[Rfam]
RNA sequence: AUGUGGUCGUGCGGCGAGGUCUCCAGUCCGCUCUCCGCGCCUUCUGACGCACCUUCCCCGGCGCCAGACGGCGGUUUCCCCGGCGGGCGGGCGGGGACCUGGCCGCACGACGACGAACAU
Numbered sequence: 001a002u003g004u005g006g007u008c009g010u011g012c013g014g015c016g017a018g019g020u021c022u023c024c025a026g027u028c029c030g031c032u033c034u035c036c037g038c039g040c041c042u043u044c045u046g047a048c049g050c051a052c053c054u055u056c057c058c059c060g061g062c063g064c065c066a067g068a069c070g071g072c073g074g075u076u077u078c079c080c081c082g083g084c085g086g087g088c089g090g091g092c093g094g095g096g097a098c099c100u101g102g103c104c105g106c107a108c109g110a111c112g113a114c115g116a117a118c119a120u
Stems, first nucleotide, its partner, number of pairs: 010107006018099002021096004026092008035083001038073004043068004048063003
A member of the RNA family "mraW RNA" from Actinopolymorpha pittospori, 120 nucleotides long. The base pairs follow the family's consensus structure, which is taken from published work.